The family of this 133-nucleotide sequence from Sula dactylatra is "Small nucleolar RNA SNORA55". Rfam's curators write: ACA55 is a member of the H/ACA class of snoRNA that guide the sites of modification of uridines to pseudouridines. The family has 29 seed sequences and 1,476 matches in Rfam 15.1. The family's consensus secondary structure was predicted with PFOLD.
[Rfam]
RNA sequence: GCAUCUGAAUCUUUCCCAAUCCUUGCGAUGUAGUGCUGGACUGGGGACACGUGAUGCAACAGGAAAGCAGAAGAAAUCCAGACAAGCUCCCUUUUGCCACAGUGGGACUUGUCUCUACGCCUUUGCAACAUUU
Numbered sequence: 001g002c003a004u005c006u007g008a009a010u011c012u013u014u015c016c017c018a019a020u021c022c023u024u025g026c027g028a029u030g031u032a033g034u035g036c037u038g039g040a041c042u043g044g045g046g047a048c049a050c051g052u053g054a055u056g057c058a059a060c061a062g063g064a065a066a067g068c069a070g071a072a073g074a075a076a077u078c079c080a081g082a083c084a085a086g087c088u089c090c091c092u093u094u095u096g097c098c099a100c101a102g103u104g105g106g107a108c109u110u111g112u113c114u115c116u117a118c119g120c121c122u123u124u125g126c127a128a129c130a131u132u133u
Stems, first nucleotide, its partner, number of pairs: 001057005013047006021039002067126005080114007